Rfam assigns this 97-nucleotide RNA from Eumeta japonica to the family "mir-210 microRNA precursor family".
The literature on the family includes a 2005 paper in Proc Natl Acad Sci U S A by Cai et al., "Kaposi's sarcoma-associated herpesvirus expresses an array of viral microRNAs in latently infected cells".
Pairs were carried over by alignment from the consensus structure, which was predicted with WAR.
The match comes from Rfam's covariance-model search (77 bits).
RNA sequence: UCGAAGCCCAAAGCAGCUGCUGGCCACUGCACAAGAUUAGUGAGUCUAUACUCUUGUGCGUGUGACAGCGGCUAUUGCGGGCCUUUCACAGUCAACG
Numbered sequence: 001u002c003g004a005a006g007c008c009c010a011a012a013g014c015a016g017c018u019g020c021u022g023g024c025c026a027c028u029g030c031a032c033a034a035g036a037u038u039a040g041u042g043a044g045u046c047u048a049u050a051c052u053c054u055u056g057u058g059c060g061u062g063u064g065a066c067a068g069c070g071g072c073u074a075u076u077g078c079g080g081g082c083c084u085u086u087c088a089c090a091g092u093c094a095a096c097g
Base pairs, nucleotide, nucleotide: 006082007081008080009079012076015073016072017071018070019069020068021067022066024064025062026061028060029059030058031057032056033055035053036052